[Rfam]
RNA sequence: ACUGACUUUGAGUCUCUCCUCAGGGUGCUGCAGGCAAAGCUGGGGACCCAGGGAGAGACGUAAGUGAGG
Numbered sequence: 001a002c003u004g005a006c007u008u009u010g011a012g013u014c015u016c017u018c019c020u021c022a023g024g025g026u027g028c029u030g031c032a033g034g035c036a037a038a039g040c041u042g043g044g045g046a047c048c049c050a051g052g053g054a055g056a057g058a059c060g061u062a063a064g065u066g067a068g069g
Stems, first nucleotide, its partner, number of pairs: 002068002005065004012059009023049004028044002031042003
Shown here is a 69-nucleotide RNA from Macaca mulatta, a member of the family "mir-711 microRNA precursor family".
Rfam 15.1 lists 118 matches to the family in 116 species.
Rfam links the family to the GO terms RISC complex and miRNA-mediated post-transcriptional gene silencing.